This 82-nucleotide RNA sequence from Sinorhizobium alkalisoli belongs to the Rfam family "chrB-a RNA". The base pairs follow the family's consensus structure, which is taken from published work. The family's RNA type in Rfam is cis-regulatory element.
RNA sequence: CGCAUGGGGUUGCGAUCACCCCACGAGGCGACAGCCGAAGUAUCGCGUCCAAUCAACCGCUCACACGGGAGGACGCGUCAUG
Numbered sequence: 001c002g003c004a005u006g007g008g009g010u011u012g013c014g015a016u017c018a019c020c021c022c023a024c025g026a027g028g029c030g031a032c033a034g035c036c037g038a039a040g041u042a043u044c045g046c047g048u049c050c051a052a053u054c055a056a057c058c059g060c061u062c063a064c065a066c067g068g069g070a071g072g073a074c075g076c077g078u079c080a081u082g
Base pairs, nucleotide, nucleotide: 005023006022007021008020009019010018045076046075047074048073049072050071